A member of the RNA family "Small nucleolar RNA SNORA24" from Pipistrellus kuhlii, 147 nucleotides long. Taxonomically the source falls in Pipistrellus (Eukaryota, Chordata, Laurasiatheria, Yangochiroptera). Rfam's curators write: ACA24 is a member of the H/ACA class of snoRNA that guide the sites of modification of uridines to pseudouridines. The match comes from Rfam's covariance-model search (99 bits). Gene Ontology terms of the family: nucleolus and RNA processing. Pairs were carried over by alignment from the consensus structure, which was predicted with RNAfold.

[Rfam]
RNA sequence: AUUUUUGUAUAUUUAACAUUUGAUAUGAAGAGGAAGGAGGAGAUGAAGUCAAUCAGGUUCCUGGCCAUGGAAGAGCGUUUUCUUGUUUAUUGGCAAAGCUGUCAUCACUUAAUUGGUAUCAGAUUCUGACUUGCACAAGUAACAUUC
Numbered sequence: 001a002u003u004u005u006u007g008u009a010u011a012u013u014u015a016a017c018a019u020u021u022g023a024u025a026u027g028a029a030g031a032g033g034a035a036g037g038a039g040g041a042g043a044u045g046a047a048g049u050c051a052a053u054c055a056g057g058u059u060c061c062u063g064g065c066c067a068u069g070g071a072a073g074a075g076c077g078u079u080u081u082c083u084u085g086u087u088u089a090u091u092g093g094c095a096a097a098g099c100u101g102u103c104a105u106c107a108c109u110u111a112a113u114u115g116g117u118a119u120c121a122g123a124u125u126c127u128g129a130c131u132u133g134c135a136c137a138a139g140u141a142a143c144a145u146u147c
Base pairs, nucleotide, nucleotide: 002071003070004069006067007066017056020052021051022050023049024048084144085143086142087141090138091137092136093134094133095132096131099122100121101120104117105116106115107114